[Rfam]
RNA sequence: AACACUGGACUUCCCAGUAUCGUAGCCGAUGAGGUUUAGCCAAGGCAUGAUUAUUGCUUAUUGAAAACUUUUCCCAGUACCUAUCCUGUCCAGUUGCCCCAAGGUAAAGGCUCUCUGAUAAUUUGCAUGUUGUCAUG
Numbered sequence: 001a002a003c004a005c006u007g008g009a010c011u012u013c014c015c016a017g018u019a020u021c022g023u024a025g026c027c028g029a030u031g032a033g034g035u036u037u038a039g040c041c042a043a044g045g046c047a048u049g050a051u052u053a054u055u056g057c058u059u060a061u062u063g064a065a066a067a068c069u070u071u072u073c074c075c076a077g078u079a080c081c082u083a084u085c086c087u088g089u090c091c092a093g094u095u096g097c098c099c100c101a102a103g104g105u106a107a108a109g110g111c112u113c114u115c116u117g118a119u120a121a122u123u124u125g126c127a128u129g130u131u132g133u134c135a136u137g
Base pairs, nucleotide, nucleotide: 019051020050021049022048023047025046026045027044033041034040035039083119084118085117088113091110126137127136128135129134

Rfam assigns this 137-nucleotide RNA from Chiloscyllium punctatum to the family "U4 spliceosomal RNA".
Rfam describes the family as follows. U4 small nuclear RNA (U4 snRNA) is a component of the major U2-dependent spliceosome.
NCBI's taxonomy places the organism under Eukaryota, Metazoa, Eumetazoa, Bilateria, Chiloscyllium.
Its Rfam clan is "U4 clan".
The literature on the family includes a 1997 paper in Nucleic Acids Res by Zwieb, "The uRNA database".
A search with the family's covariance model found it, with a score of 49 bits.